RNA sequence: UUUGAGAAGUGAUGAUUAAAGAUGUCAGUAUAGUAUCAUAGGUGCAGCUGUGCAGUUAUCUUUGCUCUGCUGAAUAAAGUCUUAUUUGCAUAUCAGUCUGAUCCCAAA
Numbered sequence: 001u002u003u004g005a006g007a008a009g010u011g012a013u014g015a016u017u018a019a020a021g022a023u024g025u026c027a028g029u030a031u032a033g034u035a036u037c038a039u040a041g042g043u044g045c046a047g048c049u050g051u052g053c054a055g056u057u058a059u060c061u062u063u064g065c066u067c068u069g070c071u072g073a074a075u076a077a078a079g080u081c082u083u084a085u086u087u088g089c090a091u092a093u094c095a096g097u098c099u100g101a102u103c104c105c106a107a108a
Base pairs, nucleotide, nucleotide: 001108002107003106004105006103007102

The family of this 108-nucleotide RNA from Artemisia annua is "Small nucleolar RNA Z122". Rfam 15.1 lists 822 matches to the family in 247 species. It scores 39 bits against the family's covariance model. Its family is annotated with nucleolus and RNA processing in the Gene Ontology.